Shown here is a 323-nucleotide sequence from Providencia stuartii, a member of the family "RNase E 5' UTR element".
Taxonomically the source falls in Providencia (Bacteria, Pseudomonadati, Pseudomonadota, Morganellaceae).
This family represents a conserved element found in the 5' UTR of RNase E mRNA. RNase E is a key regulatory enzyme in the pathway of mRNA degradation in E. coli that is able to auto-regulate the degradation of its own mRNA in response to changes in RNase E activity. This rne 5' UTR element acts as a sensor of cellular RNase E concentration enabling tight regulation of RNase E concentration and synthesis.
The match comes from Rfam's covariance-model search (206 bits).
RNA sequence: UUGCCAUCAUGUUUGAUAAAACGAUAAUUGGCAUAAGAUAUAAGUUUACUAUUUGAUUGAGUAAAGACGCUGCAAUGGCGUAAGACGUCUAGCAAAAUCAAAUAUUUAGCGAGCAACGAAUAUUAGCUUAUUGGGUUAGGAACUUCCGUUAAUUUAAAUGAUGACGGCUUCCUGAUUAAGAACGCUGAAUUUUUAAUCUAAAAAUCAGGUUCACCGAAUACUGCGCGUCUCUAUACGAACGACUGCCGUGAGGCAGGCGGUUUUGUAAAAAUCACGAGGCCAUCGGUUUACAAUAGCUCCUUUUUUCGCUGCUCUUUAUUGAA
Dot-bracket structure: .(((.....(((((....))))).......)))................(((((((....((....(((..((....))......)))...))....)))))))......(((((.((((........((((....(((((....(((((............)))))..)))))......(((.((((.((((......)))).))))))).(((((.........(((((........((.(((((....))))).))................)))))..)))))....)))).........)))).))))).........